[Rfam]
RNA sequence: AAACUUACCUGGCAGGCGCUCGGGGUGGCUCACGCAUCACCCUGUCGUAGUUCGGAGCAGGGCACUGCACUCUGCUGCUGUGAUGAACUAUGGGCUCCCAAUCGGGGGUGCCAACUGCAGAAUUUCUGAUAGCGGCAGACAGCGUUCGCGCUUCUGCCAU
Numbered sequence: 001a002a003a004c005u006u007a008c009c010u011g012g013c014a015g016g017c018g019c020u021c022g023g024g025g026u027g028g029c030u031c032a033c034g035c036a037u038c039a040c041c042c043u044g045u046c047g048u049a050g051u052u053c054g055g056a057g058c059a060g061g062g063c064a065c066u067g068c069a070c071u072c073u074g075c076u077g078c079u080g081u082g083a084u085g086a087a088c089u090a091u092g093g094g095c096u097c098c099c100a101a102u103c104g105g106g107g108g109u110g111c112c113a114a115c116u117g118c119a120g121a122a123u124u125u126c127u128g129a130u131a132g133c134g135g136c137a138g139a140c141a142g143c144g145u146u147c148g149c150g151c152u153u154c155u156g157c158c159a160u
Stems, first nucleotide, its partner, number of pairs: 012118004016048003020044001023042005049089003057081001059079002062075002091113003094109001095107004134158004141152004
RNA: U1 spliceosomal RNA